Annotation:
Eukaryotic large subunit ribosomal RNA: a 429-nucleotide part of an RNA from Donacobius atricapilla. It scores 1982 bits against the family's covariance model.
Nucleotides: 429
Base pairs, nucleotide, nucleotide: 024055025053026052028050029049035042036041065072066071076103077102078101079100080099106330107329109327113154114153116151117150119148120145121144122143124140125139126138127137128136159274160273161271166270167269168268169267180259181258185254187251188250189249190248191247193245199212200211201210202209221225228238229237284300288299289298307324308323309322310321311320364371386397387396388395389394
Number, partner (000 for none) and nucleotide at each position: 001000g002000a003000c004000c005000u006000u007000c008000c009000g010000a011000u012000c013000a014000g015000a016000u017000g018000u019000g020000c021000c022000g023000a024055c025053c026052c027000a028050c029049u030000g031000a032000a033000u034000u035042u036041a037000a038000g039000c040000a041036u042035a043000u044000u045000a046000g047000u048000c049029a050028g051000c052026g053025g054000a055024g056000g057000a058000a059000a060000a061000g062000a063000a064000a065072c066071u067000a068000a069000u070000g071066a072065g073000g074000a075000u076103u077102c078101c079100c080099u081000c082000a083000g084000u085000a086000a087000c088000a089000g090000u091000g092000a093000a094000g095000g096000a097000a098000g099080a100079g101078g102077g103076a104000a105000g106330a107329g108000c109327c110000c111000a112000g113154c114153a115000c116151c117150a118000a119148a120145u121144c122143c123000c124140c125139g126138c127137c128136c129000c130000a131000u132000g133000g134000u135000g136128g137127g138126g139125c140124g141000c142000a143122g144121g145120a146000c147000a148119u149000g150117u151116g152000a153114u154113g155000u156000a157000c158000a159274g160273a161271u162000g163000c164000c165000c166270c167269c168268c169267u170000c171000c172000c173000c174000g175000g176000c177000g178000c179000c180259g181258c182000u183000c184000u185254u186000g187251g188250g189249g190248g191247a192000a193245c194000c195000a196000a197000a198000u199212c200211c201210u202209u203000g204000u205000g206000a207000u208000c209202g210201a211200g212199g213000c214000c215000a216000c217000a218000g219000c220000c221225c222000a223000c224000g225221g226000a227000c228238g229237g230000u231000g232000u233000a234000a235000a236000g237229c238228u239000g240000a241000u242000a243000g244000c245193g246000g247191u248190c249189c250188u251187c252000c253000a254185g255000c256000a257000u258181g259180c260000c261000a262000g263000g264000c265000c266000u267169g268168g269167g270166g271161a272000u273160u274159c275000u276000u277000g278000g279000a280000g281000u282000c283000u284300g285000g286000u287000u288299g289298c290000u291000u292000g293000g294000g295000a296000a297000u298289g299288c300284u301000c302000a303000a304000a305000g306000u307324g308323g309322g310321u311320g312000g313000u314000a315000a316000a317000c318000u319000c320311c321310a322309u323308c324307u325000a326000a327109g328000u329107c330106u331000a332000a333000a334000u335000a336000c337000c338000a339000g340000c341000a342000c343000g344000a345000g346000a347000c348000c349000a350000a351000u352000a353000g354000c355000c356000a357000a358000c359000a360000a361000g362000u363000a364371c365000c366000g367000u368000a369000a370000a371364g372000g373000a374000a375000a376000g377000g378000g379000u380000a381000a382000a383000g384000a385000a386397c387396u388395u389394u390000g391000a392000a393000g394389a395388g396387a397386g398000a399000g400000u401000u402000c403000a404000a405000g406000a407000g408000g409000g410000c411000a412000u413000g414000a415000a416000a417000a418000u419000u420000a421000a422000g423000a424000g425000a426000u427000a428000a429000a